[Rfam]
RNA sequence: GCAUAGUAAUGGAUUUAUGGUGUGUCCUCUGUGGGCACCUCACAGUAGGCCCAUGCCAGAGAAAGCUGCAGCUUUAAACUAUUGCCCAGUAUCCUUACCUGUGGGCUGUGAGCACUGAAGAGGGCUGUGGGGUG
Dot-bracket structure: ((((.((.......((.(((.(((((......)).))).))).))...))..))))............((((((.....((...(.((((.(..........).))))...)...))....)))))).......
This 134-nucleotide RNA from Cervus elaphus belongs to the Rfam family "Small nucleolar RNA SNORA42/SNORA80 family". The members of this family belong to the H/ACA class of snoRNAs that guide the sites of modification of uridines to pseudouridines. Human ACA42 (SNORA42) was cloned from HeLa cells by immunoprecipitation with anti-GAR1 antibody. Rfam links the family to the GO terms nucleolus and RNA processing.